This 59-nucleotide RNA from Brachybacterium faecium belongs to the Rfam family "msiK RNA". The family has 120 seed sequences and 1,374 matches in Rfam 15.1.

RNA sequence: GCCACGUAUCACUUCACAACGGACCGUCCGGCACGUACCUGCCGGUGAAGGAGAACCAC
Numbered sequence: 001g002c003c004a005c006g007u008a009u010c011a012c013u014u015c016a017c018a019a020c021g022g023a024c025c026g027u028c029c030g031g032c033a034c035g036u037a038c039c040u041g042c043c044g045g046u047g048a049a050g051g052a053g054a055a056c057c058a059c
Base pairs, nucleotide, nucleotide: 010051012050013049014048015047016046028045029044030043031042032041033040